[Rfam]
RNA sequence: GCCGAUGAUGUCACAAUCCAACUUGUUUGAGAUUGUAGUGGCGCCAAGUCCCUGUUUUACGGGGAGAACCUACUUGGUGAAAGCUGCAAUACUUUGACAGAAACUGAUAGACUGAGGA
Dot-bracket structure: .((..............................................(((((.....)))))...................................................)).
Numbered sequence: 001g002c003c004g005a006u007g008a009u010g011u012c013a014c015a016a017u018c019c020a021a022c023u024u025g026u027u028u029g030a031g032a033u034u035g036u037a038g039u040g041g042c043g044c045c046a047a048g049u050c051c052c053u054g055u056u057u058u059a060c061g062g063g064g065a066g067a068a069c070c071u072a073c074u075u076g077g078u079g080a081a082a083g084c085u086g087c088a089a090u091a092c093u094u095u096g097a098c099a100g101a102a103a104c105u106g107a108u109a110g111a112c113u114g115a116g117g118a
Stems, first nucleotide, its partner, number of pairs: 002117002050064005
Rfam assigns this 118-nucleotide RNA sequence from Rhamnella rubrinervis to the family "Small nucleolar RNA Z278". A reference for the family is Chen et al. (2003), "The high diversity of snoRNAs in plants: identification and comparative study of 120 snoRNA genes from Oryza sativa", Nucleic Acids Res. The match comes from Rfam's covariance-model search (48 bits). The family's consensus secondary structure was predicted with PFOLD. Lineage of the source: Eukaryota > Streptophytina > eudicotyledons > Gunneridae > Rhamnella. Rfam describes the family as follows. snoZ278 is a C/D box small nucleolar RNA. Its methylation guide targets have not been reported. Gene Ontology terms of the family: nucleolus and RNA processing. By type it is a C/D-box small nucleolar RNA.